RNA sequence: GCGGGUGUAAUUCAGUGGUAGAAUGUCAGCUUCCCAAGUUGAACGUCGCCGGUUCGAGCCCGGUCACCCGCU
Numbered sequence: 001g002c003g004g005g006u007g008u009a010a011u012u013c014a015g016u017g018g019u020a021g022a023a024u025g026u027c028a029g030c031u032u033c034c035c036a037a038g039u040u041g042a043a044c045g046u047c048g049c050c051g052g053u054u055c056g057a058g059c060c061c062g063g064u065c066a067c068c069c070g071c072u
Base pairs, nucleotide, nucleotide: 001071002070003069004068005067006066007065010024011023012022013021026042027041028040029039030038048064049063050062051061052060
The family of this 72-nucleotide RNA from cyanobiont of Ornithocercus magnificus is "tRNA". It scores 63 bits against the family's covariance model. The family's RNA type in Rfam is transfer RNA. The family's consensus secondary structure is taken from published work.